[Rfam]
This 107-nucleotide RNA from Plutella xylostella belongs to the Rfam family "mir-8517 microRNA precursor family". The base pairs follow the family's consensus structure, which was predicted with RNAalifold. The organism belongs to Plutella, within Eukaryota.
RNA sequence: UUAUAGGACGCUUUAGCUUUUGAACUGUUAUGUCCCUCUAUAUCAAAAAAACAAAUUGUUCUCUUUCAGAGUGACAAAACAGUUCAAAAGCUAAAGAGUCCUAUAAC
Dot-bracket structure: ((((((....((((((((((((((((((..((.................((((...))))......))..........))))))))))))))))))....)))))).
Numbered sequence: 001u002u003a004u005a006g007g008a009c010g011c012u013u014u015a016g017c018u019u020u021u022g023a024a025c026u027g028u029u030a031u032g033u034c035c036c037u038c039u040a041u042a043u044c045a046a047a048a049a050a051a052c053a054a055a056u057u058g059u060u061c062u063c064u065u066u067c068a069g070a071g072u073g074a075c076a077a078a079a080c081a082g083u084u085c086a087a088a089a090g091c092u093a094a095a096g097a098g099u100c101c102u103a104u105a106a107c
Stems, first nucleotide, its partner, number of pairs: 001106006011096018031068002050060004